RNA sequence: AGACUCUUAGCUAUCCAUAGUUACGCUUGGCCUCACCUGUGCAACUUUCUUAAUGGGGAGAGAGAGAUCUCUUUGGGAACUCAGACUGGCCUUAUGGUGGCCUCUCUUUCUUUGAGGGGCACAACAGGU
Dot-bracket structure: ...(((((..((.(....((((.(((............))).))))........).)).)))))....(((((.(((.....(((..((((.......))))..)))...))).)))))..........
Numbered sequence: 001a002g003a004c005u006c007u008u009a010g011c012u013a014u015c016c017a018u019a020g021u022u023a024c025g026c027u028u029g030g031c032c033u034c035a036c037c038u039g040u041g042c043a044a045c046u047u048u049c050u051u052a053a054u055g056g057g058g059a060g061a062g063a064g065a066g067a068u069c070u071c072u073u074u075g076g077g078a079a080c081u082c083a084g085a086c087u088g089g090c091c092u093u094a095u096g097g098u099g100g101c102c103u104c105u106c107u108u109u110c111u112u113u114g115a116g117g118g119g120c121a122c123a124a125c126a127g128g129u
Stems, first nucleotide, its partner, number of pairs: 004064005011058002014055001019046004024041003069119005075113003083107003088102004